[Rfam]
The record is a 76-nucleotide RNA from Nostocoides sp. F2B08, which matches "ZMP/ZTP riboswitch aptamer (pfl RNA motif)" in Rfam.
The family's consensus secondary structure is taken from published work.
Taxonomically the source falls in Nostocoides (Bacteria, Actinomycetota, Actinomycetes, Intrasporangiaceae).
The match comes from Rfam's covariance-model search (42 bits).
RNA sequence: CUGACCGGAGACGACUGGCGAGGGUGGGCGACCACCAGGGAGUCACCAGCCGGCAUCGCCCGCCUGGGUGCCGGCA
Dot-bracket structure: ..(.(.((.(((..(([[[[...((((....))))..))..))).)).).).(((((...]]]]..))))).....